[Rfam]
RNA sequence: AUGUUUGAGUAAUCGCUGCACAUCUGAUGUGUAGAGGAAAGUCCAUGCUCACACAGGCUGAGACGCUUGUAGUGUUCGUGCUUGACGAAGUCAUAAGUCAAGGUAGCCAUUGGUUAACGGCAGGGAGACCACCUAAGUCUUUGGAUAUGGUGCAAGUACCCUUGAAAGUGCCACAGUGACGUAGUCGUUUUGGAAACAAAACGAGUGGAACGAGGUAAACCCCACGAGUGAGCAACCCAAAUAUUGGUAGGGGCAUCCUUGAUUAGGGAAUGGAACCGAAAAAGGGACAAGCUCUUUGCUUGUAGAUAGAUGAUUACUGCUUAAUGUACGAGGCUGACCACCGUUUGUAGUACUAAAGUACAGAACAUGGCUUACAAAA
Numbered sequence: 001a002u003g004u005u006u007g008a009g010u011a012a013u014c015g016c017u018g019c020a021c022a023u024c025u026g027a028u029g030u031g032u033a034g035a036g037g038a039a040a041g042u043c044c045a046u047g048c049u050c051a052c053a054c055a056g057g058c059u060g061a062g063a064c065g066c067u068u069g070u071a072g073u074g075u076u077c078g079u080g081c082u083u084g085a086c087g088a089a090g091u092c093a094u095a096a097g098u099c100a101a102g103g104u105a106g107c108c109a110u111u112g113g114u115u116a117a118c119g120g121c122a123g124g125g126a127g128a129c130c131a132c133c134u135a136a137g138u139c140u141u142u143g144g145a146u147a148u149g150g151u152g153c154a155a156g157u158a159c160c161c162u163u164g165a166a167a168g169u170g171c172c173a174c175a176g177u178g179a180c181g182u183a184g185u186c187g188u189u190u191u192g193g194a195a196a197c198a199a200a201a202c203g204a205g206u207g208g209a210a211c212g213a214g215g216u217a218a219a220c221c222c223c224a225c226g227a228g229u230g231a232g233c234a235a236c237c238c239a240a241a242u243a244u245u246g247g248u249a250g251g252g253g254c255a256u257c258c259u260u261g262a263u264u265a266g267g268g269a270a271u272g273g274a275a276c277c278g279a280a281a282a283a284g285g286g287a288c289a290a291g292c293u294c295u296u297u298g299c300u301u302g303u304a305g306a307u308a309g310a311u312g313a314u315u316a317c318u319g320c321u322u323a324a325u326g327u328a329c330g331a332g333g334c335u336g337a338c339c340a341c342c343g344u345u346u347g348u349a350g351u352a353c354u355a356a357a358g359u360a361c362a363g364a365a366c367a368u369g370g371c372u373u374a375c376a377a378a379a
Stems, first nucleotide, its partner, number of pairs: 004379003007375001008318007016034006039373003043370005048232005053070006076227005081102006103118001104116005119222002122162004130152004137146003168220002170216003185204008236252003256286005287303006320358003324354001326353004
This 379-nucleotide RNA from Aquibacillus salsiterrae belongs to the Rfam family "Bacterial RNase P class B". The match comes from Rfam's covariance-model search (321 bits). Ribonuclease P (RNase P) is a ubiquitous endoribonuclease, found in archaea, bacteria and eukarya as well as chloroplasts and mitochondria. Its best characterised activity is the generation of mature 5'-ends of tRNAs by cleaving the 5'-leader elements of precursor-tRNAs. For this family Rfam cites "Ribonuclease P: unity and diversity in a tRNA processing ribozyme" (Frank and Pace, Annu Rev Biochem, 1998). Rfam links the family to the GO terms tRNA processing, dimeric ribonuclease P complex and ribonuclease P activity. The source organism's lineage runs through Bacteria, Bacillota, Bacilli, Caryophanales and Aquibacillus. It is annotated as a ribozyme.